The family of this 126-nucleotide RNA from Martelella alba is "Alphaproteobacterial ar14". A search with the family's covariance model found it, with a score of 98 bits. About the family: Smr14C2 was renamed NfeR1 (Nodule Formation Efficiency RNA) highly expressed in salt stress and during the symbiotic interaction on legume roots.
RNA sequence: UGGUUUCGAAACCGCGCAUUCCUCCUCCCAGUGUGGUUUCGAUAGGGCUGAUGACCCUCCUCCUCCCAAUCGUCAGUCUGUUACAAUGACGCUCGCCGGAUCCUCCUCCCCCGGUGGGCGUUUUUG
Numbered sequence: 001u002g003g004u005u006u007c008g009a010a011a012c013c014g015c016g017c018a019u020u021c022c023u024c025c026u027c028c029c030a031g032u033g034u035g036g037u038u039u040c041g042a043u044a045g046g047g048c049u050g051a052u053g054a055c056c057c058u059c060c061u062c063c064u065c066c067c068a069a070u071c072g073u074c075a076g077u078c079u080g081u082u083a084c085a086a087u088g089a090c091g092c093u094c095g096c097c098g099g100a101u102c103c104u105c106c107u108c109c110c111c112c113g114g115u116g117g118g119c120g121u122u123u124u125u126g
Stems, first nucleotide, its partner, number of pairs: 007041003011037007046078009089121011